[Rfam]
RNA sequence: UGCGUCAGCUGAUAGCUGCUAUCCUAAAUAGUAGAGGAAAGUCCGUGCUAGUACUAACUGCGAUGUUAGUAGUGAUCGUGUUAAACCUAAUAAGUUUAAGCCUAGACGACUAGUGCCACAGAGACGAGAGUAGUGAAACGCGGUAAACUCCACGAACUAGAAACCCAAAUUUGGUAGGGGAACCAUUAACUAAGAAAUGAAUUAGAAAAUGGAACAUUUUAUAUGUUAGAUAAAUUAUCAGCACUUCGUUUUAAAUGAAGCACAGAACACGGCUUAUGAU
Dot-bracket structure: ...(((((((((((.((((((.......))))))....[[[.[[[[[(((((((((((......)))))).....(((((((((((.......))))))((...).)((...(((((........................)))..))))))))))))))...(((..........)))...(((((....................)))))(((((.....)))))........))))))).((((((.....)))))).......]]]]]]]].))))
A member of the RNA family "Bacterial RNase P class B" from Mycoplasmopsis mustelae, 280 nucleotides long.
The literature on the family includes a 1998 paper in Annu Rev Biochem by Frank and Pace, "Ribonuclease P: unity and diversity in a tRNA processing ribozyme".
The family's consensus secondary structure is taken from published work.
Clan: RNaseP clan.
A search with the family's covariance model found it, with a score of 201 bits.
Gene Ontology terms of the family: ribonuclease P activity, tRNA processing and dimeric ribonuclease P complex.